The family of this 230-nucleotide part of an RNA from Propioniferax innocua is "Bacterial large subunit ribosomal RNA".
Pairs were carried over by alignment from the consensus structure, which is taken from published work.
A search with the family's covariance model found it, with a score of 2812 bits.
[Rfam]
RNA sequence: GAGUUAGCGGUAUGUGGCAAGGUUAACCCGUGUGGGGAAGCCGUAGCGAAAGCAAGUCCGAACAGGGCGCUUGAGUCGCAUGCCCUAGACCCGAAGCGAAGUGAUCUAUCCAUGGCCAGGUUGAAGCGACGGUAAGACGUCGUGGAGGACCGAACCCACCUAGGUUGAAAACUGGGGGGAUGAGCUGUGGAUAGGGGUGAAAGGCCAAUCAAACUUCGUGAUAGCUGGUU
Numbered sequence: 001g002a003g004u005u006a007g008c009g010g011u012a013u014g015u016g017g018c019a020a021g022g023u024u025a026a027c028c029c030g031u032g033u034g035g036g037g038a039a040g041c042c043g044u045a046g047c048g049a050a051a052g053c054a055a056g057u058c059c060g061a062a063c064a065g066g067g068c069g070c071u072u073g074a075g076u077c078g079c080a081u082g083c084c085c086u087a088g089a090c091c092c093g094a095a096g097c098g099a100a101g102u103g104a105u106c107u108a109u110c111c112a113u114g115g116c117c118a119g120g121u122u123g124a125a126g127c128g129a130c131g132g133u134a135a136g137a138c139g140u141c142g143u144g145g146a147g148g149a150c151c152g153a154a155c156c157c158a159c160c161u162a163g164g165u166u167g168a169a170a171a172c173u174g175g176g177g178g179g180a181u182g183a184g185c186u187g188u189g190g191a192u193a194g195g196g197g198u199g200a201a202a203g204g205c206c207a208a209u210c211a212a213a214c215u216u217c218g219u220g221a222u223a224g225c226u227g228g229u230u
Base pairs, nucleotide, nucleotide: 005087006086007085009084010083011082012081013080014079015078016077017076018075021042022041023040024039027036028035029034046053047052056068057067058066059065090228091227093225097218098217099216100215101214102213106194107193108192109191110190111189112188113187114186115185116184117182119151120150121149122148126143127142128141129140130139131138155179156178157177159176160175161174162173163172196206197205198204